RNA sequence: UAUCACUAAGGAUUGUUUUUCUCACAAAAUAAUUCCUGUGAGAGACGGAAAGGAAGCGAAUUAACCUGCACGGGUUAAUUUAAUGGAUAAUAAUAAGGAUUGG
Numbered sequence: 001u002a003u004c005a006c007u008a009a010g011g012a013u014u015g016u017u018u019u020u021c022u023c024a025c026a027a028a029a030u031a032a033u034u035c036c037u038g039u040g041a042g043a044g045a046c047g048g049a050a051a052g053g054a055a056g057c058g059a060a061u062u063a064a065c066c067u068g069c070a071c072g073g074g075u076u077a078a079u080u081u082a083a084u085g086g087a088u089a090a091u092a093a094u095a096a097g098g099a100u101u102g103g
Stems, first nucleotide, its partner, number of pairs: 020043007060079007

Shown here is a 103-nucleotide RNA from Vibrio sp. V28_P6S34P95, a member of the family "gltS RNA".
Rfam classes the family as a cis-regulatory element.